[Rfam]
RNA sequence: AUGACAUGUGCUGUGGUUGAAAGUCGAUGUCAGUCGCAGACCAAGCGAUCCACGUAAGGCACCCAAAGCGGUGCUGAUCAUAGUGCGGCCUAGAAGUAAGACCUGCCGCGGAAAUACUGCGAGAGGGCUAGUAGUGGGGGACAGCAGUCUAUGAGCGAACGUCCCAGCAGGCGAGUGUGGGGGUAAAGACCAGGUCAGGCAUGUCAG
Numbered sequence: 001a002u003g004a005c006a007u008g009u010g011c012u013g014u015g016g017u018u019g020a021a022a023g024u025c026g027a028u029g030u031c032a033g034u035c036g037c038a039g040a041c042c043a044a045g046c047g048a049u050c051c052a053c054g055u056a057a058g059g060c061a062c063c064c065a066a067a068g069c070g071g072u073g074c075u076g077a078u079c080a081u082a083g084u085g086c087g088g089c090c091u092a093g094a095a096g097u098a099a100g101a102c103c104u105g106c107c108g109c110g111g112a113a114a115u116a117c118u119g120c121g122a123g124a125g126g127g128c129u130a131g132u133a134g135u136g137g138g139g140g141a142c143a144g145c146a147g148u149c150u151a152u153g154a155g156c157g158a159a160c161g162u163c164c165c166a167g168c169a170g171g172c173g174a175g176u177g178u179g180g181g182g183g184u185a186a187a188g189a190c191c192a193g194g195u196c197a198g199g200c201a202u203g204u205c206a207g
Stems, first nucleotide, its partner, number of pairs: 002206008011198003014192005027178003030040001033089006049083001054078001057075002062070001081185001102171005107121005125164004134156002140149003
The record is a 207-nucleotide RNA sequence, which matches "raiA RNA" in Rfam. It is one of the family's seed sequences.